[Rfam]
RNA sequence: CGGUGUGAGCUGGUCACCUGACUUGCAGUGUGGUGAUAGUGGAACACACUGCAUACCCUGUGACCUCCCUACACAGU
Dot-bracket structure: ..(((((.(..((((((..(...((((......................))))...)..))))))..).)))))...
Numbered sequence: 001c002g003g004u005g006u007g008a009g010c011u012g013g014u015c016a017c018c019u020g021a022c023u024u025g026c027a028g029u030g031u032g033g034u035g036a037u038a039g040u041g042g043a044a045c046a047c048a049c050u051g052c053a054u055a056c057c058c059u060g061u062g063a064c065c066u067c068c069c070u071a072c073a074c075a076g077u
Stems, first nucleotide, its partner, number of pairs: 003074005009068001012065006020057001024053004

Shown here is a 77-nucleotide sequence from Ornithorhynchus anatinus, a member of the family "mir-1421 microRNA precursor family". The base pairs follow the family's consensus structure, which was predicted with RNAalifold. Gene Ontology terms of the family: miRNA-mediated post-transcriptional gene silencing and RISC complex.